[Rfam]
RNA sequence: GGCCUCCCUCUGUGGGGUGAUCAAUCACGGAGCCCCCAGAUCGAUUGCCCCGCAGAGGAAGGCC
Numbered sequence: 001g002g003c004c005u006c007c008c009u010c011u012g013u014g015g016g017g018u019g020a021u022c023a024a025u026c027a028c029g030g031a032g033c034c035c036c037c038a039g040a041u042c043g044a045u046u047g048c049c050c051c052g053c054a055g056a057g058g059a060a061g062g063c064c
Base pairs, nucleotide, nucleotide: 001064002063003062004061005060007058008057009056010055011054012053013052014051015050016049017048018047019046020045021044022043024041025040026039029036030035
Background:
Shown here is a 64-nucleotide sequence from Myotis davidii, a member of the family "mir-9242 microRNA precursor family". The family has 2 seed sequences and 940 matches in Rfam 15.1. Lineage of the source: Eukaryota > Gnathostomata > Euteleostomi > Dipnotetrapodomorpha > Myotis. It scores 63 bits against the family's covariance model.